[Rfam]
RNA sequence: AUUUAGCCCCGAUUGAAGAGAAAAUCCUUUUAUCUCGUUUCUUUAACGAGAUAAAAGAUUGGAACGAAAAGCGGGAAAAAGA
Number, nucleotide and partner (000 for none) at each position: 001a000002u000003u000004u000005a000006g000007c000008c000009c074010c073011g072012a000013u070014u069015g000016a000017a000018g065019a000020g000021a000022a000023a060024a059025u058026c057027c000028u000029u055030u054031u053032a052033u051034c050035u049036c048037g047038u046039u045040u000041c000042u000043u000044u000045a039046a038047c037048g036049a035050g034051a033052u032053a031054a030055a029056a000057g026058a025059u024060u023061g000062g000063a000064a000065c018066g000067a000068a000069a014070a013071g000072c011073g010074g009075g000076a000077a000078a000079a000080a000081g000082a000
Flavo-1 RNA: an 82-nucleotide sequence from Flavobacterium macacae.